[Rfam]
RNA sequence: CGCGCGAGUAGAAGCGUUCAGCCGCGCCAGGCUUGCCACAUCACGGCCGGCCCGAAGCGGUGGGUCAUUGCUCCGGAA
Numbered sequence: 001c002g003c004g005c006g007a008g009u010a011g012a013a014g015c016g017u018u019c020a021g022c023c024g025c026g027c028c029a030g031g032c033u034u035g036c037c038a039c040a041u042c043a044c045g046g047c048c049g050g051c052c053c054g055a056a057g058c059g060g061u062g063g064g065u066c067a068u069u070g071c072u073c074c075g076g077a078a
Base pairs, nucleotide, nucleotide: 006073007072008071009070010069015063019064021061022060023059024058025057
The family of this 78-nucleotide RNA sequence from Aquabacterium olei is "Xanthine riboswitch aptamer (NMT1 RNA)". A reference for the family is Yu and Breaker (2020), "A bacterial riboswitch class senses xanthine and uric acid to regulate genes associated with purine oxidation", RNA. Its family is annotated with purine nucleobase binding in the Gene Ontology.